[Rfam]
RNA sequence: GUGGCUUCUUUAAAUUUGAAUGUCGAUUUGGUAAAAUUGUUCCAAGUUUGUAUGAAUUGAAGCCUAGAAAAAAUGUUCCCCUCGCUAUCCGGUGCAACUUUUGAUGUUGUAUUUGGACGUUGGGAAACUACACUU
Numbered sequence: 001g002u003g004g005c006u007u008c009u010u011u012a013a014a015u016u017u018g019a020a021u022g023u024c025g026a027u028u029u030g031g032u033a034a035a036a037u038u039g040u041u042c043c044a045a046g047u048u049u050g051u052a053u054g055a056a057u058u059g060a061a062g063c064c065u066a067g068a069a070a071a072a073a074u075g076u077u078c079c080c081c082u083c084g085c086u087a088u089c090c091g092g093u094g095c096a097a098c099u100u101u102u103g104a105u106g107u108u109g110u111a112u113u114u115g116g117a118c119g120u121u122g123g124g125a126a127a128c129u130a131c132a133c134u135u
Stems, first nucleotide, its partner, number of pairs: 002066001003064003008059001011056001016052001019049002026047006033040001075128003079124003083119002088117005097107002

The family of this 135-nucleotide RNA sequence from Helianthus annuus is "Small nucleolar RNA snoR136".
Its family is annotated with RNA processing and nucleolus in the Gene Ontology.
The literature on the family includes a 2009 paper in Nucleic Acids Res by Chen and Wu, "Mining small RNA sequencing data: a new approach to identify small nucleolar RNAs in Arabidopsis".